[Rfam]
RNA sequence: UGAAAACCCCCAUCAGUGGUGUUGUUCCCCAGCCGGGAGCAACUUUACCAUAUUCCGAGUUC
Dot-bracket structure: .................((.((((((((.......)))))))).))................
A member of the RNA family "Plastid-psbN 5UTR RNA" from Gomphosphaeria aponina, 62 nucleotides long.
A reference for the family is Richter et al. (2023), "Retrograde signaling in plants: A critical review focusing on the GUN pathway and beyond", Plant Commun.
It scores 66 bits against the family's covariance model.
The base pairs follow the family's consensus structure, which was predicted with LocARNA.